[Rfam]
RNA sequence: CAUAGCCGGACAAAGUAACCCUUUGGGUGAAAUCAGCGCACAAGCAGAAGGAGCGCAAGACCUACCCUCUAUGGGGGAAUCAGGCCCCCGAUGUUAUGAGCCGGACGCUUCUUGCAUGGGCGGCUAAUGUGCGAUAACCGCUUUCAUGGCUACUAACUAUGCAGCUACAACCGCACCCUACAAUCUGCUGUACGGGAGGCCAACAUGACAAGUAACGAAC
Numbered sequence: 001c002a003u004a005g006c007c008g009g010a011c012a013a014a015g016u017a018a019c020c021c022u023u024u025g026g027g028u029g030a031a032a033u034c035a036g037c038g039c040a041c042a043a044g045c046a047g048a049a050g051g052a053g054c055g056c057a058a059g060a061c062c063u064a065c066c067c068u069c070u071a072u073g074g075g076g077g078a079a080u081c082a083g084g085c086c087c088c089c090g091a092u093g094u095u096a097u098g099a100g101c102c103g104g105a106c107g108c109u110u111c112u113u114g115c116a117u118g119g120g121c122g123g124c125u126a127a128u129g130u131g132c133g134a135u136a137a138c139c140g141c142u143u144u145c146a147u148g149g150c151u152a153c154u155a156a157c158u159a160u161g162c163a164g165c166u167a168c169a170a171c172c173g174c175a176c177c178c179u180a181c182a183a184u185c186u187g188c189u190g191u192a193c194g195g196g197a198g199g200c201c202a203a204c205a206u207g208a209c210a211a212g213u214a215a216c217g218a219a220c
Stems, first nucleotide, its partner, number of pairs: 005039002019027002065075003083200001085198001087196004092192001093157004099151004107115002118143006161191005